[Rfam]
epsC RNA: a 113-nucleotide RNA sequence from Cohnella sp. OV330.
RNA sequence: AGGUAAUGUCUACCGGACCUUUAUCACCGUAGGCACUCGGCCAUGCUGUGGGUGAUUCGUCACCUUAGGCGUGCAUCGUCAAGGGUGUGGCGUGAGGUGGGGUUUGAUGCCCU
Numbered sequence: 001a002g003g004u005a006a007u008g009u010c011u012a013c014c015g016g017a018c019c020u021u022u023a024u025c026a027c028c029g030u031a032g033g034c035a036c037u038c039g040g041c042c043a044u045g046c047u048g049u050g051g052g053u054g055a056u057u058c059g060u061c062a063c064c065u066u067a068g069g070c071g072u073g074c075a076u077c078g079u080c081a082a083g084g085g086u087g088u089g090g091c092g093u094g095a096g097g098u099g100g101g102g103u104u105u106g107a108u109g110c111c112c113u
Stems, first nucleotide, its partner, number of pairs: 001020004007035007036096004040091008050065006068080004099113005

Notes: It scores 102 bits against the family's covariance model.